Rfam assigns this 169-nucleotide RNA sequence from Vagococcus fessus to the family "M-box riboswitch aptamer (ykoK leader)". Rfam links the family to the GO terms regulation of gene expression and response to magnesium ion. From the family's description: M-box riboswitch, also know as ykoK leader is described as a metaloregulatory RNA that sense divalent metals and function as a genetic control element of genes related to divalent metal transport in bacteria. A search with the family's covariance model found it, with a score of 142 bits. The source organism's lineage runs through Bacteria, Bacilli, Lactobacillales, Enterococcaceae and Vagococcus.
[Rfam]
RNA sequence: GAUACAAUCUGUUAGGUGAGGCUCCUAUAUUGGAAAUACGCUGCUGCUCAAAAAUGUCGAGAGACGCCAAUGAGUCAACUGGAAUUGUCGAACAAGGCUCUUCCUAAUGUAGCUGACGAGGUAUUCGUCUAAGCCAUAUAGUGCUAAAACUCGACGAUGAGAUUUGGUA
Numbered sequence: 001g002a003u004a005c006a007a008u009c010u011g012u013u014a015g016g017u018g019a020g021g022c023u024c025c026u027a028u029a030u031u032g033g034a035a036a037u038a039c040g041c042u043g044c045u046g047c048u049c050a051a052a053a054a055u056g057u058c059g060a061g062a063g064a065c066g067c068c069a070a071u072g073a074g075u076c077a078a079c080u081g082g083a084a085u086u087g088u089c090g091a092a093c094a095a096g097g098c099u100c101u102u103c104c105u106a107a108u109g110u111a112g113c114u115g116a117c118g119a120g121g122u123a124u125u126c127g128u129c130u131a132a133g134c135c136a137u138a139u140a141g142u143g144c145u146a147a148a149a150c151u152c153g154a155c156g157a158u159g160a161g162a163u164u165u166g167g168u169a
Base pairs, nucleotide, nucleotide: 006164007163008162009161010160011155012154013095015151016150017149020145021144022143025141026140027139028138029137030136032135033134040113041112042111043110044109046075047074048073049072050071055066056065057064058063081104082103083102084101087098088097089096115129116128117127